[Rfam]
Overview
Vibrio RNA AS9: a 107-nucleotide RNA from Alteromonas sp. V450. Identified by direct cloning an parallel sequencing experiments with 5S/tRNA depletion. Confirmed by Northern blot. A reference for the family is Liu et al. (2009), "Experimental discovery of sRNAs in Vibrio cholerae by direct cloning, 5S/tRNA depletion and parallel sequencing", Nucleic Acids Res.
RNA sequence: AAGGGUGCGACAGCGCUCUUGCGUCAUUGGCAAACACACCAAGCCGCGAGCGUGAGUAACCAUAAAGUUAAUAGCUUCAGGCGUCACAUGCUCUGCCGCCAUUAUCA
Numbered sequence: 001a002a003g004g005g006u007g008c009g010a011c012a013g014c015g016c017u018c019u020u021g022c023g024u025c026a027u028u029g030g031c032a033a034a035c036a037c038a039c040c041a042a043g044c045c046g047c048g049a050g051c052g053u054g055a056g057u058a059a060c061c062a063u064a065a066a067g068u069u070a071a072u073a074g075c076u077u078c079a080g081g082c083g084u085c086a087c088a089u090g091c092u093c094u095g096c097c098g099c100c101a102u103u104a105u106c107a
Stems, first nucleotide, its partner, number of pairs: 003061002006058003009031001011029003015025001038053002044048001069107001071105003074099002078095003081091003